[Rfam]
RNA sequence: UAGUGCGGAACGUCGAUUAAGUUCGCCACGUCCUGUGGCAACAUCGACAUGACCUACAUCCUGUAGG
Numbered sequence: 001u002a003g004u005g006c007g008g009a010a011c012g013u014c015g016a017u018u019a020a021g022u023u024c025g026c027c028a029c030g031u032c033c034u035g036u037g038g039c040a041a042c043a044u045c046g047a048c049a050u051g052a053c054c055u056a057c058a059u060c061c062u063g064u065a066g067g
Stems, first nucleotide, its partner, number of pairs: 012048006025039005053067005